Shown here is a 301-nucleotide RNA from Aplysia californica, a member of the family "Metazoan signal recognition particle RNA". The base pairs follow the family's consensus structure, which is taken from published work. Rfam describes the family as follows. The signal recognition particle (SRP) is a universally conserved ribonucleoprotein. It is involved in the co-translational targeting of proteins to membranes. The eukaryotic SRP consists of a 300-nucleotide 7S RNA and six proteins: SRPs 72, 68, 54, 19, 14, and 9. Archaeal SRP consists of a 7S RNA and homologues of the eukaryotic SRP19 and SRP54 proteins. Eukaryotic and archaeal 7S RNAs have very similar secondary structures, as represented by this family. Eight helical elements fold into the Alu and S domains, separated by a long linker region. The Alu domain is thought to mediate the peptide chain elongation retardation function of the SRP. The universally conserved helix which interacts with the SRP54 M domain mediates signal sequence recognition. In eukaryotes and archaea, the SRP19-helix 6 complex is thought to be involved in SRP assembly and stabilises helix 8 for SRP54 binding. The Signal Recognition Particle Database (SRPDB) provides compilations of SRP components, with phylogenetic data and structural illustrations. Many sequences below the threshold for this family are clearly closely related, but are most likely to be SRP RNA derived pseudogenes. The human genome in particular is known to contain a large amount of SRP RNA related sequence, including Alu repeats. While the threshold of this family is set high so as to minimise the number of hits to such regions, it is likely that some remain. The family's RNA type in Rfam is non-coding RNA gene. Rfam's curators put it in the seed alignment.
RNA sequence: GCUGGGAGUUGUGGCGUGCUCCUGUAAUCCAGCUACUUUGGAGGCUUGAGUCGGAGGACGGUUUGAGUGCGGGGGUUCUGCUCUCGGGCGUGCCAUGUCGAUCGGGUGUCCGCACUAAGCCCGGCAUUAAUAUGGUGAUCUUGUAGGAAUACGAGAUUUCCAGGUUGACUAAGGAGGGACGAACCGGCCCAGGGGGGAAACCCAGCAGGCAAAAGUCCCCGUGUCGCGCAGUAGUGGGAUCGCACCCGUGAAUGGGCGUUCGUUGGCAGCCCGUCCGAUAUAAUCGGACCCGGCUCUUAUU
Numbered sequence: 001g002c003u004g005g006g007a008g009u010u011g012u013g014g015c016g017u018g019c020u021c022c023u024g025u026a027a028u029c030c031a032g033c034u035a036c037u038u039u040g041g042a043g044g045c046u047u048g049a050g051u052c053g054g055a056g057g058a059c060g061g062u063u064u065g066a067g068u069g070c071g072g073g074g075g076u077u078c079u080g081c082u083c084u085c086g087g088g089c090g091u092g093c094c095a096u097g098u099c100g101a102u103c104g105g106g107u108g109u110c111c112g113c114a115c116u117a118a119g120c121c122c123g124g125c126a127u128u129a130a131u132a133u134g135g136u137g138a139u140c141u142u143g144u145a146g147g148a149a150u151a152c153g154a155g156a157u158u159u160c161c162a163g164g165u166u167g168a169c170u171a172a173g174g175a176g177g178g179a180c181g182a183a184c185c186g187g188c189c190c191a192g193g194g195g196g197g198a199a200a201c202c203c204a205g206c207a208g209g210c211a212a213a214a215g216u217c218c219c220c221g222u223g224u225c226g227c228g229c230a231g232u233a234g235u236g237g238g239a240u241c242g243c244a245c246c247c248g249u250g251a252a253u254g255g256g257c258g259u260u261c262g263u264u265g266g267c268a269g270c271c272c273g274u275c276c277g278a279u280a281u282a283a284u285c286g287g288a289c290c291c292g293g294c295u296c297u298u299a300u301u
Base pairs, nucleotide, nucleotide: 001045002044003043004023005022006021007020008019009018028042029041030040048296049295050294051293052292053291054290059286060285061284062283063282067276069274070273071272072271073270078269079268080267081266082265085262086261087260088259089258090257093255094254095253096252098250103248104247105246106245107244108243109242110238111237113236114235115234116233117232119229120228122226123225124224125223126222127221128167129166130165131164133162134161135160137158138157139156140155141154142153143152144151145150169173176220177219178218179216180215187210188209189208194203195202196201